Rfam assigns this 81-nucleotide RNA sequence from Sphaeramia orbicularis to the family "Small nucleolar RNA SNORD74". Its Rfam clan is "SNORD74 clan".
RNA sequence: CUCGUGUCUGUGUGAUGACACAAGUGUUGGUAGGGACAUCUGAAUAACCGUGAGGAAUGCCAACAGUCCUGACAGCACGAG
Numbered sequence: 001c002u003c004g005u006g007u008c009u010g011u012g013u014g015a016u017g018a019c020a021c022a023a024g025u026g027u028u029g030g031u032a033g034g035g036a037c038a039u040c041u042g043a044a045u046a047a048c049c050g051u052g053a054g055g056a057a058u059g060c061c062a063a064c065a066g067u068c069c070u071g072a073c074a075g076c077a078c079g080a081g
Stems, first nucleotide, its partner, number of pairs: 001081005